[Rfam]
RNA sequence: AUGGGUAUACAGAAUUCCAUGGAUCUUUCAAAAAGCAUGGCAGCUGGAGAGGGGAGUUGAUGCCUCCUCCAAAAUUCAGAAAGUUUGCCUGCAUUUGGCCAUAUUCAUCUCCGCUGAACUCCGUGUGGUGCAGGGAGGAAUUGCGGCAAAUAUUUGGGCUAAAUGCAUGGCAAACCGGCAAGUCACAUAACGGCAAUGGACUCGGUUAGAGUCUU
Numbered sequence: 001a002u003g004g005g006u007a008u009a010c011a012g013a014a015u016u017c018c019a020u021g022g023a024u025c026u027u028u029c030a031a032a033a034a035g036c037a038u039g040g041c042a043g044c045u046g047g048a049g050a051g052g053g054g055a056g057u058u059g060a061u062g063c064c065u066c067c068u069c070c071a072a073a074a075u076u077c078a079g080a081a082a083g084u085u086u087g088c089c090u091g092c093a094u095u096u097g098g099c100c101a102u103a104u105u106c107a108u109c110u111c112c113g114c115u116g117a118a119c120u121c122c123g124u125g126u127g128g129u130g131c132a133g134g135g136a137g138g139a140a141u142u143g144c145g146g147c148a149a150a151u152a153u154u155u156g157g158g159c160u161a162a163a164u165g166c167a168u169g170g171c172a173a174a175c176c177g178g179c180a181a182g183u184c185a186c187a188u189a190a191c192g193g194c195a196a197u198g199g200a201c202u203c204g205g206u207u208a209g210a211g212u213c214u215u
Base pairs, nucleotide, nucleotide: 046070047069083175084174085173086172087171088170100165101164102163199213200212201211202210203209

A member of the RNA family "Early nodulin 40" from Coffea canephora, 215 nucleotides long. For this family Rfam cites "Identification of conserved secondary structures and expansion segments in enod40 RNAs reveals new enod40 homologues in plants" (Gultyaev and Roussis, Nucleic Acids Res, 2007). It scores 94 bits against the family's covariance model. Rfam classes the family as a non-coding RNA gene. Pairs were carried over by alignment from the consensus structure, which is taken from published work.